[Rfam]
RNA sequence: CUUUAUGGUAGAGGUGCGCUAAUUAUAAGUAGUGAUCAGUAGGGUGAUGCCUAAGAUCGUUCACGAAAGGAGUUAGUGCCGAAGUUGAGCUAUCCAUCAUGAUCUACUGCUGGUGUUGCUGUUGAAAAAGCGCAACACUGCCAUGGUGUUUUUUAUCGGGAAGAUAGAAGAUUUUAACCGUGGAGCGCUACUGAUAGG
Numbered sequence: 001c002u003u004u005a006u007g008g009u010a011g012a013g014g015u016g017c018g019c020u021a022a023u024u025a026u027a028a029g030u031a032g033u034g035a036u037c038a039g040u041a042g043g044g045u046g047a048u049g050c051c052u053a054a055g056a057u058c059g060u061u062c063a064c065g066a067a068a069g070g071a072g073u074u075a076g077u078g079c080c081g082a083a084g085u086u087g088a089g090c091u092a093u094c095c096a097u098c099a100u101g102a103u104c105u106a107c108u109g110c111u112g113g114u115g116u117u118g119c120u121g122u123u124g125a126a127a128a129a130g131c132g133c134a135a136c137a138c139u140g141c142c143a144u145g146g147u148g149u150u151u152u153u154u155a156u157c158g159g160g161a162a163g164a165u166a167g168a169a170g171a172u173u174u175u176a177a178c179c180g181u182g183g184a185g186c187g188c189u190a191c192u193g194a195u196a197g198g
Stems, first nucleotide, its partner, number of pairs: 006193006016079009032064004037059001039057001083111003087107001088103001090101001112139008122129001141183007
RNA: Lysine riboswitch aptamer
Organism: Shewanella denitrificans